[Rfam]
RNA sequence: GCGGUACCGGUUCACGCCUCCCAGAUCAACCUGACGGGCACCGGGGAGAGCGCCCGGCGACC
Numbered sequence: 001g002c003g004g005u006a007c008c009g010g011u012u013c014a015c016g017c018c019u020c021c022c023a024g025a026u027c028a029a030c031c032u033g034a035c036g037g038g039c040a041c042c043g044g045g046g047a048g049a050g051c052g053c054c055c056g057g058c059g060a061c062c
Base pairs, nucleotide, nucleotide: 003062004061005060007057008056009055010054015052016051017050018048019047020046021045022044
A member of the RNA family "L31-Actinobacteria ribosomal protein leader" from Actinomadura viridilutea, 62 nucleotides long.
The organism belongs to Actinomadura, within Bacteria.
The family's RNA type in Rfam is cis-regulatory leader.